[Rfam]
The record is a 177-nucleotide RNA from Neomonachus schauinslandi, which matches "Small nucleolar RNA SNORA81" in Rfam. The family has 28 seed sequences and 1,161 matches in Rfam 15.1. For this family Rfam cites "A novel experimental approach for systematic identification of box H/ACA snoRNAs from eukaryotes" (Gu et al., Nucleic Acids Res, 2005). Lineage of the source: Eukaryota > Opisthokonta > Deuterostomia > Dipnotetrapodomorpha > Neomonachus. Its family is annotated with nucleolus and RNA processing in the Gene Ontology.
RNA sequence: ACCUUCUUACUUAAGCUCUGUACUAAAAUUGCAGAAACUAGUAUCAUGCCUUCAUAUUUGUAAAAAGCCAGCAAAGUAAACACAAGAAGAAAAUAACUAUACCAGAUAGUAGAAAAACUGAGAUGAACCUCUUUCUUAAGUCCAGCAUACUUUGUUCUAAGAUUUGGGAUGAUAAUA
Numbered sequence: 001a002c003c004u005u006c007u008u009a010c011u012u013a014a015g016c017u018c019u020g021u022a023c024u025a026a027a028a029u030u031g032c033a034g035a036a037a038c039u040a041g042u043a044u045c046a047u048g049c050c051u052u053c054a055u056a057u058u059u060g061u062a063a064a065a066a067g068c069c070a071g072c073a074a075a076g077u078a079a080a081c082a083c084a085a086g087a088a089g090a091a092a093a094u095a096a097c098u099a100u101a102c103c104a105g106a107u108a109g110u111a112g113a114a115a116a117a118c119u120g121a122g123a124u125g126a127a128c129c130u131c132u133u134u135c136u137u138a139a140g141u142c143c144a145g146c147a148u149a150c151u152u153u154g155u156u157c158u159a160a161g162a163u164u165u166g167g168g169a170u171g172a173u174a175a176u177a
Base pairs, nucleotide, nucleotide: 018076019075021073023071024070029065030064034058035057037055040052041051044048098171099170100169102167103166104165105164106163120148122146124144125143127141
The base pairs follow the family's consensus structure, which was predicted with WAR. By type it is an H/ACA-box small nucleolar RNA.